[Rfam]
This 49-nucleotide sequence belongs to the Rfam family "eL15-Euryarchaeota ribosomal protein leader". On this family, see Eckert and Weinberg, BMC Microbiol 2020: "Discovery of 20 novel ribosomal leader candidates in bacteria and archaea". It is annotated as a cis-regulatory leader.
RNA sequence: CGGGAUUAGUCCCGUUAGGUAUGUGGCCUGAAAAAGGCUGAACCUGGAG
Numbered sequence: 001c002g003g004g005a006u007u008a009g010u011c012c013c014g015u016u017a018g019g020u021a022u023g024u025g026g027c028c029u030g031a032a033a034a035a036g037g038c039u040g041a042a043c044c045u046g047g048a049g
Stems, first nucleotide, its partner, number of pairs: 001014005017045003025039005